RNA sequence: AACUCGAUAGUAUGGUAGAAAAAAAAUAUGAAUCUUUCUACCAUACUAUCAACCCUUGUUAUUUUGAGGUCAUAUCUAGUAUU
Number, nucleotide and partner (000 for none) at each position: 001a000002a000003c000004u000005c000006g050007a049008u048009a047010g046011u045012a044013u043014g042015g041016u040017a039018g038019a037020a036021a035022a000023a033024a000025a000026a000027u000028a000029u000030g000031a000032a000033u023034c000035u021036u020037u019038c018039u017040a016041c015042c014043a013044u012045a011046c010047u009048a008049u007050c006051a000052a000053c000054c000055c000056u000057u000058g000059u000060u000061a000062u000063u000064u000065u000066g000067a000068g000069g000070u000071c000072a000073u000074a000075u000076c000077u000078a000079g000080u000081a000082u000083u000